The record is a 172-nucleotide RNA from a Nocardioidaceae bacterium, which matches "c-di-AMP riboswitch aptamer (ydaO/yuaA leader)" in Rfam. NCBI's taxonomy places the organism under Bacteria, Bacillati, Actinomycetota, Actinomycetes, Nocardioidaceae.
RNA sequence: CGGGUAUCAACGCCUAAUUCGGUGGUGUGGCCCUCGGGCCGGUCGCUUCCGGAACCGGGGAACCACGUUCCACUGGGGUGAAUCGCCAAGGCGCUUUGCGCGUCUCGGUGUAGGGCUUCUUUGCCGGCCCGAACCCGUCAGCUCACCCGGUCGGCGUCACGACAAAGGAGCA
Numbered sequence: 001c002g003g004g005u006a007u008c009a010a011c012g013c014c015u016a017a018u019u020c021g022g023u024g025g026u027g028u029g030g031c032c033c034u035c036g037g038g039c040c041g042g043u044c045g046c047u048u049c050c051g052g053a054a055c056c057g058g059g060g061a062a063c064c065a066c067g068u069u070c071c072a073c074u075g076g077g078g079u080g081a082a083u084c085g086c087c088a089a090g091g092c093g094c095u096u097u098g099c100g101c102g103u104c105u106c107g108g109u110g111u112a113g114g115g116c117u118u119c120u121u122u123g124c125c126g127g128c129c130c131g132a133a134c135c136c137g138u139c140a141g142c143u144c145a146c147c148c149g150g151u152c153g154g155c156g157u158c159a160c161g162a163c164a165a166a167g168g169a170g171c172a
Stems, first nucleotide, its partner, number of pairs: 011156004018053005054151006064075002076136003084110004113130004

It scores 77 bits against the family's covariance model.